Notes
Shown here is a 219-nucleotide RNA from Kineococcus aurantiacus, a member of the family "Actinobacteria sRNA Ms_IGR-5". The family's RNA type in Rfam is small RNA. For this family Rfam cites "Identification of small RNAs in Mycobacterium smegmatis using heterologous Hfq" (Li et al., RNA, 2013). NCBI's taxonomy places the organism under Bacteria, Actinomycetota, Actinomycetes, Kineosporiales, Kineococcus. Pairs were carried over by alignment from the consensus structure.
RNA sequence: ACACGGGAAGGAGGUGGUCCGAAAACAUGGUUUCCCAUCGGACGCGUGAGGUGGCUGCCAGCUAGCAGCUGCGCGACAGGACGCGGACCGCUCUGGUCGCCCCGCGCAGCGCGGCGAAUCCACGGCAGUCACCGGGUCCCCGGGCGCCGGUCUGUCCAACCGGACCGCCCCGACGGUGCCAGCACCGCCGGGCGGGAAGCGCCCGGGGACUUCCUGCGU
Numbered sequence: 001a002c003a004c005g006g007g008a009a010g011g012a013g014g015u016g017g018u019c020c021g022a023a024a025a026c027a028u029g030g031u032u033u034c035c036c037a038u039c040g041g042a043c044g045c046g047u048g049a050g051g052u053g054g055c056u057g058c059c060a061g062c063u064a065g066c067a068g069c070u071g072c073g074c075g076a077c078a079g080g081a082c083g084c085g086g087a088c089c090g091c092u093c094u095g096g097u098c099g100c101c102c103c104g105c106g107c108a109g110c111g112c113g114g115c116g117a118a119u120c121c122a123c124g125g126c127a128g129u130c131a132c133c134g135g136g137u138c139c140c141c142g143g144g145c146g147c148c149g150g151u152c153u154g155u156c157c158a159a160c161c162g163g164a165c166c167g168c169c170c171c172g173a174c175g176g177u178g179c180c181a182g183c184a185c186c187g188c189c190g191g192g193c194g195g196g197a198a199g200c201g202c203c204c205g206g207g208g209a210c211u212u213c214c215u216g217c218g219u
Stems, first nucleotide, its partner, number of pairs: 013059006061115003065112002068110004073105003134213001135211012147163005